Annotation
Small nucleolar RNA SNORD16: a 99-nucleotide RNA from Gouania willdenowi. The literature on the family includes a 1993 paper in EMBO J by Fragapane et al., "A novel small nucleolar RNA (U16) is encoded inside a ribosomal protein intron and originates by processing of the pre-mRNA". The organism belongs to Gouania, within Eukaryota. Rfam links the family to the GO terms nucleolus and RNA processing.

[Rfam]
RNA sequence: UGCCAUGAUGGUGUAAUUUGCGUCUGAAUCUGUGAACAAUGACAGUUGCCUGCUGUCUUAAGUUGUCUCAGAUUAUUGAUGUCUGAUAAAUUCUGAGCA
Numbered sequence: 001u002g003c004c005a006u007g008a009u010g011g012u013g014u015a016a017u018u019u020g021c022g023u024c025u026g027a028a029u030c031u032g033u034g035a036a037c038a039a040u041g042a043c044a045g046u047u048g049c050c051u052g053c054u055g056u057c058u059u060a061a062g063u064u065g066u067c068u069c070a071g072a073u074u075a076u077u078g079a080u081g082u083c084u085g086a087u088a089a090a091u092u093c094u095g096a097g098c099a
Base pairs, nucleotide, nucleotide: 001099002098003097021081022080023079024078030071031070032069034067039063040062041057042056043055044054045053